The record is a 136-nucleotide RNA from Pleuronectes platessa, which matches "Small nucleolar RNA SNORD10" in Rfam. The match comes from Rfam's covariance-model search (83 bits). Its family is annotated with nucleolus and RNA processing in the Gene Ontology. By type it is a C/D-box small nucleolar RNA. The family's consensus secondary structure was predicted with WAR.
RNA sequence: GUAUAGUGAUGAAAUCCAUGCGUGUCAUAUGACUCUGUUACUCCUGGUGUGUUGUUGGUCUUGUCGGCGUUCUGCAGACUUGAAUCCUCAGGGCAGCAGGGAUUCAGAGACAUGAUCAUACUUAACUUCUGAAUAC
Dot-bracket structure: ((((.....................................(((((.(((..........................................))).)))))...............................))))